[Rfam]
RNA sequence: UCUAACUUUAUAACCGAGGAUAGGAAUGACAAAACCACGUAUUUUGAAACUAUCCCAUUGAUACUCCUGCAUGCGUCAUAAUAGACAGAUUAUGGGGUGUGAAGCUCAGGUGAAGUCGGCAGAACAAAGGCUAAAGCCGUUCCUUUCAGGAUAAAGGUAUGCCAAUGGAUAUGCCGGAUGGCUGAAAA
Numbered sequence: 001u002c003u004a005a006c007u008u009u010a011u012a013a014c015c016g017a018g019g020a021u022a023g024g025a026a027u028g029a030c031a032a033a034a035c036c037a038c039g040u041a042u043u044u045u046g047a048a049a050c051u052a053u054c055c056c057a058u059u060g061a062u063a064c065u066c067c068u069g070c071a072u073g074c075g076u077c078a079u080a081a082u083a084g085a086c087a088g089a090u091u092a093u094g095g096g097g098u099g100u101g102a103a104g105c106u107c108a109g110g111u112g113a114a115g116u117c118g119g120c121a122g123a124a125c126a127a128a129g130g131c132u133a134a135a136g137c138c139g140u141u142c143c144u145u146u147c148a149g150g151a152u153a154a155a156g157g158u159a160u161g162c163c164a165a166u167g168g169a170u171a172u173g174c175c176g177g178a179u180g181g182c183u184g185a186a187a188a
Stems, first nucleotide, its partner, number of pairs: 018055006031045004056180004066110004070101005076095007117176005125167002129163002131150002139145001151160003
RNA: Group II catalytic intron D1-D4-5